[Rfam]
RNA sequence: AAUAAGGGUCGGUUGGCUAAAAAUGUCACGCCAGCCCUAAUUAGGGGGGUGCUGUAUGGCUAAUCAAGACAUAUGGCCGACAUAAUUUGUGGAACUUCAUAGGGUUGGCUCGCUUUGGCUAACUCUUCA
Numbered sequence: 001a002a003u004a005a006g007g008g009u010c011g012g013u014u015g016g017c018u019a020a021a022a023a024u025g026u027c028a029c030g031c032c033a034g035c036c037c038u039a040a041u042u043a044g045g046g047g048g049g050u051g052c053u054g055u056a057u058g059g060c061u062a063a064u065c066a067a068g069a070c071a072u073a074u075g076g077c078c079g080a081c082a083u084a085a086u087u088u089g090u091g092g093a094a095c096u097u098c099a100u101a102g103g104g105u106u107g108g109c110u111c112g113c114u115u116u117g118g119c120u121a122a123c124u125c126u127u128c129a
Stems, first nucleotide, its partner, number of pairs: 008081005014028004029051004035045001037044002052076007099127001102124001104123005110118003
Dot-bracket structure: .......(((((.((((.......))))((((..(.((....)))..))))(((((((...........)))))))))))).................(..(.(((((.(((...)))))))))..)..
Annotation
The family of this 129-nucleotide RNA from Rhododendron simsii is "U11 spliceosomal RNA". Clan: U1 clan. It is annotated as a spliceosomal small nuclear RNA. Taxonomically the source falls in Rhododendron (Eukaryota, Tracheophyta, Spermatophyta, eudicotyledons). A search with the family's covariance model found it, with a score of 60 bits. Pairs were carried over by alignment from the consensus structure, which is taken from published work.